[Rfam]
RNA: Purine riboswitch aptamer
RNA sequence: AACUAAAUAGCGGCUGUCACUCAUAUAAUUUCUGGAAUAUGGCCAGAGAGUCUCUACCAGACAACCGUAAAUUGUCUGACUAUGAGUGGGAUUUUGUAUCAA
Numbered sequence: 001a002a003c004u005a006a007a008u009a010g011c012g013g014c015u016g017u018c019a020c021u022c023a024u025a026u027a028a029u030u031u032c033u034g035g036a037a038u039a040u041g042g043c044c045a046g047a048g049a050g051u052c053u054c055u056a057c058c059a060g061a062c063a064a065c066c067g068u069a070a071a072u073u074g075u076c077u078g079a080c081u082a083u084g085a086g087u088g089g090g091a092u093u094u095u096g097u098a099u100c101a102a
Stems, first nucleotide, its partner, number of pairs: 018088008029049007058078007